The family of this 135-nucleotide sequence from Galemys pyrenaicus is "Small nucleolar RNA SNORA75". Rfam describes the family as follows. U23 belongs to the H/ACA class of snoRNAs. snoRNAs bind a number of proteins (including dyskerin, Gar1p and Nop10p in the case of the H/ACA class) to form snoRNP complexes. This class are thought to guide the sites of modification of uridines to pseudouridines by forming direct base pairing interactions with substrate RNAs. Targets include ribosomal and spliceosomal RNAs as well as the Trypanosoma spliced leader RNA (SL RNA) as possibly other, still unknown cellular RNAs. U23 can direct the pseudouridylation of U97 in human 18S rRNA (Bachellerie JP, Ganot, P unpublished data). A reference for the family is Ganot et al. (1997), "The family of box ACA small nucleolar RNAs is defined by an evolutionarily conserved secondary structure and ubiquitous sequence elements essential for RNA accumulation", Genes Dev. The source organism's lineage runs through Eukaryota, Vertebrata, Tetrapoda, Theria and Galemys.
RNA sequence: ACCUUCUCAAUGAGCUCCUUUCUGCCCAUCAGUGGCAGUUCAUGGAUUCGCACGAGAAGGAGAGCCAGUUCACAGCACUAGCACUCAAUGCCCUCUGUCUUCCAGAGGUAGAUUCUGCUGUCCUGUGAGACACGG
Numbered sequence: 001a002c003c004u005u006c007u008c009a010a011u012g013a014g015c016u017c018c019u020u021u022c023u024g025c026c027c028a029u030c031a032g033u034g035g036c037a038g039u040u041c042a043u044g045g046a047u048u049c050g051c052a053c054g055a056g057a058a059g060g061a062g063a064g065c066c067a068g069u070u071c072a073c074a075g076c077a078c079u080a081g082c083a084c085u086c087a088a089u090g091c092c093c094u095c096u097g098u099c100u101u102c103c104a105g106a107g108g109u110a111g112a113u114u115c116u117g118c119u120g121u122c123c124u125g126u127g128a129g130a131c132a133c134g135g
Base pairs, nucleotide, nucleotide: 003059004058005057006056007055008054014051015050016046017045018044022038023037024036025035026034070128071127072126073125074124075123092108093107094106095105096104097103
It is annotated as an H/ACA-box small nucleolar RNA. Its family is annotated with RNA processing and nucleolus in the Gene Ontology.